[Rfam]
RNA sequence: UAUGCAGGACAGAUGAUCGCGGCUGCAAGAGUCGAAAGACCGCAGGUGAGGAAAGUCCGGGCUUCAUAGGGCAGGAUGCCGGUUAACGGCCGGUAGGGGAAACCCUCAGGACAGUGCAACAGAAAUAAACCGCCACUUUUGUGGUAAGGGUGGAAAGGCAGUGUAAGAGACUACCGCCUCGUUGGUAACAAGGAGGGCACAUGUAAACCCCAUUUGAAGCAAGACCGAAUAUAAGCUUUGACGUGGCCCGCUAGCUUAAGGUAGGUUGCUUGAGGUAGUUGGCAACAGCUAUCCUAGAUAGAUGAUCAUUCAACGACAUAACCCGGCUUAUCGUUUUGCUAAGUUA
Numbered sequence: 001u002a003u004g005c006a007g008g009a010c011a012g013a014u015g016a017u018c019g020c021g022g023c024u025g026c027a028a029g030a031g032u033c034g035a036a037a038g039a040c041c042g043c044a045g046g047u048g049a050g051g052a053a054a055g056u057c058c059g060g061g062c063u064u065c066a067u068a069g070g071g072c073a074g075g076a077u078g079c080c081g082g083u084u085a086a087c088g089g090c091c092g093g094u095a096g097g098g099g100a101a102a103c104c105c106u107c108a109g110g111a112c113a114g115u116g117c118a119a120c121a122g123a124a125a126u127a128a129a130c131c132g133c134c135a136c137u138u139u140u141g142u143g144g145u146a147a148g149g150g151u152g153g154a155a156a157g158g159c160a161g162u163g164u165a166a167g168a169g170a171c172u173a174c175c176g177c178c179u180c181g182u183u184g185g186u187a188a189c190a191a192g193g194a195g196g197g198c199a200c201a202u203g204u205a206a207a208c209c210c211c212a213u214u215u216g217a218a219g220c221a222a223g224a225c226c227g228a229a230u231a232u233a234a235g236c237u238u239u240g241a242c243g244u245g246g247c248c249c250g251c252u253a254g255c256u257u258a259a260g261g262u263a264g265g266u267u268g269c270u271u272g273a274g275g276u277a278g279u280u281g282g283c284a285a286c287a288g289c290u291a292u293c294c295u296a297g298a299u300a301g302a303u304g305a306u307c308a309u310u311c312a313a314c315g316a317c318a319u320a321a322c323c324c325g326g327c328u329u330a331u332c333g334u335u336u337u338g339c340u341a342a343g344u345u346a
Stems, first nucleotide, its partner, number of pairs: 001342001004339007011331001012310007020048002023045004053329003057326005062219004069249004074215005079093005094108001095106004109210002114208002116204003130149002132145005157175002160172003176198001177196004182191003223267004232258006243251002274293008
RNA: Bacterial RNase P class A